[Rfam]
RNA sequence: AGGGAGCCAUAGUAGGCCUUAGCAGAAGUGCUUACUGCAUAGCCAUGUCAGAUUCCAAUGGAUCUGCAAAUUCUGCU
Numbered sequence: 001a002g003g004g005a006g007c008c009a010u011a012g013u014a015g016g017c018c019u020u021a022g023c024a025g026a027a028g029u030g031c032u033u034a035c036u037g038c039a040u041a042g043c044c045a046u047g048u049c050a051g052a053u054u055c056c057a058a059u060g061g062a063u064c065u066g067c068a069a070a071u072u073c074u075g076c077u
Stems, first nucleotide, its partner, number of pairs: 013045001015044003021077007028040003049066007
Dot-bracket structure: ............[.[[[...((((((((((.......))).]]]]...(((((((....)))))))....)))))))
RNA: Mammalian CPEB3 ribozyme
Organism: Alligator sinensis